[Rfam]
RNA sequence: UAUCAUGCCGAAACAUGACAAUGUCCUUUUUAAAUAAAAGGAGACUGCGUGUGGCCUAU
Numbered sequence: 001u002a003u004c005a006u007g008c009c010g011a012a013a014c015a016u017g018a019c020a021a022u023g024u025c026c027u028u029u030u031u032a033a034a035u036a037a038a039a040g041g042a043g044a045c046u047g048c049g050u051g052u053g054g055c056c057u058a059u
Base pairs, nucleotide, nucleotide: 001020003018004017005016006015007014025041026040027039028038029037
Shown here is a 59-nucleotide RNA sequence, a member of the family "queA RNA". The base pairs follow the family's consensus structure, which is taken from published work.